[Rfam]
RNA: mir-8364 microRNA precursor family
Organism: Pristionchus pacificus
RNA sequence: UCUUCAUUCUGCACACUCUCUCAACGGUCAAACAAGCGAGAGAGUGUGCAAAAUGAAGAGA
Dot-bracket structure: (((((((..(.((((((.((((...............)))).)))))).)..)))))))..